A member of the RNA family "tRNA" from Cohcovirus hiberniae, 74 nucleotides long. From the family's description: Transfer RNA (tRNA) molecules are approximately 80 nucleotides in length. Their secondary structure includes four short double-helical elements and three loops (D, anti-codon, and T loops). Further hydrogen bonds mediate the characteristic L-shaped molecular structure. tRNAs have two regions of fundamental functional importance: the anti-codon, which is responsible for specific mRNA codon recognition, and the 3' end, to which the tRNAs corresponding amino acid is attached (by aminoacyl-tRNA synthetases). tRNAs cope with the degeneracy of the genetic code in two manners: having more than one tRNA (with a specific anti-codon) for a particular amino acid; and 'wobble' base-pairing, i.e. permitting non-standard base-pairing at the 3rd anti-codon position. The base pairs follow the family's consensus structure, which is taken from published work. Rfam classes the family as a transfer RNA.
[Rfam]
RNA sequence: ACUCCUAUAGUUUAAUGGAAAAACACUGGUAGUACAUGCACCAGAGAUUGAUAGUUCGAUUCUAUCUAGGAGAU
Numbered sequence: 001a002c003u004c005c006u007a008u009a010g011u012u013u014a015a016u017g018g019a020a021a022a023a024c025a026c027u028g029g030u031a032g033u034a035c036a037u038g039c040a041c042c043a044g045a046g047a048u049u050g051a052u053a054g055u056u057c058g059a060u061u062c063u064a065u066c067u068a069g070g071a072g073a074u
Stems, first nucleotide, its partner, number of pairs: 002072006010024004026044005050066005